[Rfam]
RNA sequence: AGUUAACCAUUACAAAAAUUGUAUAGAGUAGCGACUGUAUAAUUUCUAUUGAGGUUAACGUUUAUAUGUAGUGAUAGUAGUUAAAGUUCUCCCAAGGAAGACUACUCGGGUACACUUUGCUAUGAGCAAAGUGUACUUU
Numbered sequence: 001a002g003u004u005a006a007c008c009a010u011u012a013c014a015a016a017a018a019u020u021g022u023a024u025a026g027a028g029u030a031g032c033g034a035c036u037g038u039a040u041a042a043u044u045u046c047u048a049u050u051g052a053g054g055u056u057a058a059c060g061u062u063u064a065u066a067u068g069u070a071g072u073g074a075u076a077g078u079a080g081u082u083a084a085a086g087u088u089c090u091c092c093c094a095a096g097g098a099a100g101a102c103u104a105c106u107c108g109g110g111u112a113c114a115c116u117u118u119g120c121u122a123u124g125a126g127c128a129a130a131g132u133g134u135a136c137u138u139u
Stems, first nucleotide, its partner, number of pairs: 002059007016045011076106007088098003108138013
About this RNA: The record is a 139-nucleotide sequence from Staphylococcus aureus, which matches "RNA Staph. aureus A" in Rfam. Represses the translation of the transcriptional regulator MgrA by binding to its mRNA, enhances biofilm formation and decreases bacterial virulence. It is annotated as a small RNA. The base pairs follow the family's consensus structure, which is taken from published work. A reference for the family is Geissmann et al. (2009), "A search for small noncoding RNAs in Staphylococcus aureus reveals a conserved sequence motif for regulation", Nucleic Acids Res.